[Rfam]
RNA sequence: UUUUAAUGAUGAAAAACUGCUUAAUUGCAAGUAGGGACAUGAGAAUAGUGAAUGUGUUCGAUUUUACAUUGUCUGAAAAAA
Numbered sequence: 001u002u003u004u005a006a007u008g009a010u011g012a013a014a015a016a017c018u019g020c021u022u023a024a025u026u027g028c029a030a031g032u033a034g035g036g037a038c039a040u041g042a043g044a045a046u047a048g049u050g051a052a053u054g055u056g057u058u059c060g061a062u063u064u065u066a067c068a069u070u071g072u073c074u075g076a077a078a079a080a081a
Stems, first nucleotide, its partner, number of pairs: 001081004
A member of the RNA family "small nucleolar RNA snoR22" from Hepatocystis sp. ex Piliocolobus tephrosceles, 81 nucleotides long.
It is annotated as a C/D-box small nucleolar RNA.
Rfam links the family to the GO terms RNA processing and nucleolus.
Rfam 15.1 lists 34 matches to the family in 25 species.
NCBI's taxonomy places the organism under Eukaryota, Sar, Aconoidasida, Haemosporida, Hepatocystis.